[Rfam]
RNA sequence: GUCGAACUUGGUAACGUAAGUUUGUGACCCAUGUGGGGGUUUUGAGAUGUUGGAACACGAUUUUAACUCAUUGAGUCGUGUUUAAUGUGGUUCAACUUAGGCUUGCCCAUUUCAAGCAAAGAGUUGAGCUAUGGGAUUUGAGUGAAAGCUCGGGCCUCACUGAUUCCUAAAGGAGAGGGUAAUGCACGAGGUUAGUUUAACAGAGCAACGAUCACCUCUUGAUCUUUGCAGUGGAAUGAUUACAAGCCUAAUCUAUAUGAACUCAACAUGGCACUAUGGGUUGACCGAAGUUGGACCGUAAUCUUU
Numbered sequence: 001g002u003c004g005a006a007c008u009u010g011g012u013a014a015c016g017u018a019a020g021u022u023u024g025u026g027a028c029c030c031a032u033g034u035g036g037g038g039g040u041u042u043u044g045a046g047a048u049g050u051u052g053g054a055a056c057a058c059g060a061u062u063u064u065a066a067c068u069c070a071u072u073g074a075g076u077c078g079u080g081u082u083u084a085a086u087g088u089g090g091u092u093c094a095a096c097u098u099a100g101g102c103u104u105g106c107c108c109a110u111u112u113c114a115a116g117c118a119a120a121g122a123g124u125u126g127a128g129c130u131a132u133g134g135g136a137u138u139u140g141a142g143u144g145a146a147a148g149c150u151c152g153g154g155c156c157u158c159a160c161u162g163a164u165u166c167c168u169a170a171a172g173g174a175g176a177g178g179g180u181a182a183u184g185c186a187c188g189a190g191g192u193u194a195g196u197u198u199a200a201c202a203g204a205g206c207a208a209c210g211a212u213c214a215c216c217u218c219u220u221g222a223u224c225u226u227u228g229c230a231g232u233g234g235a236a237u238g239a240u241u242a243c244a245a246g247c248c249u250a251a252u253c254u255a256u257a258u259g260a261a262c263u264c265a266a267c268a269u270g271g272c273a274c275u276a277u278g279g280g281u282u283g284a285c286c287g288a289a290g291u292u293g294g295a296c297c298g299u300a301a302u303c304u305u306u
Stems, first nucleotide, its partner, number of pairs: 001040003004023007028037003044305005051298003056293002058290001062284002065281001068279004073274001075272003078264001080262005088255003098250008107238001110236005116229007124221001126166003130162002132159004137154007167172001173220006185210001192203002